[Rfam]
RNA: TPP riboswitch aptamer (THI element)
RNA sequence: CGCACCACACACGGGUGCCCUGCUGGUACAGGGCUGAGAUCACGCUAAUACCGCGUGAGCACCGUUCGAACCUGUUGGUUAGUACCAACGUAGGAAGGAGGUGGGCACUGUGG
Number, nucleotide and partner (000 for none) at each position: 001c000002g000003c000004a000005c000006c101007a000008c000009a000010c097011a065012c064013g063014g062015g000016u058017g034018c033019c032020c031021u030022g000023c000024u000025g000026g000027u000028a000029c000030a021031g020032g019033g018034c017035u000036g000037a000038g000039a000040u000041c057042a056043c055044g054045c053046u000047a000048a000049u000050a000051c000052c000053g045054c044055g043056u042057g041058a016059g000060c000061a000062c014063c013064g012065u011066u000067c000068g000069a000070a000071c094072c093073u092074g091075u088076u087077g086078g085079u000080u000081a000082g000083u000084a000085c078086c077087a076088a075089c000090g000091u074092a073093g072094g071095a000096a000097g010098g000099a000100g000101g006102u000103g000104g000105g000106c000107a000108c000109u000110g000111u000112g000113g000